[Rfam]
This 121-nucleotide RNA from Corynebacterium freneyi belongs to the Rfam family "atpB RNA". The family's RNA type in Rfam is cis-regulatory element. It scores 89 bits against the family's covariance model. Taxonomically the source falls in Corynebacterium freneyi (Bacteria, Actinomycetota, Corynebacteriaceae, Corynebacterium).
Nucleotides: 121
Stems, first nucleotide, its partner, number of pairs: 001046004006041001007039005066087004071082003
Number, partner (000 for none) and nucleotide at each position: 001046c002045g003044u004043g005000u006041a007039c008038g009037c010036c011035g012000u013000g014000c015000a016000g017000a018000u019000g020000u021000g022000c023000g024000a025000a026000u027000g028000g029000a030000a031000u032000c033000g034000c035011c036010g037009g038008c039007g040000c041006u042000c043004c044003a045002c046001g047000u048000u049000a050000a051000a052000c053000g054000a055000c056000g057000u058000c059000c060000u061000u062000c063000g064000c065000a066087c067086c068085g069084c070000u071082u072081g073080a074000c075000c076000c077000a078000g079000u080073u081072c082071a083000u084069g085068c086067g087066g088000c089000c090000c091000a092000a093000u094000c095000a096000c097000g098000g099000g100000a101000g102000a103000g104000a105000a106000c107000g108000c109000u110000g111000a112000g113000c114000g115000u116000u117000u118000c119000a120000a121000c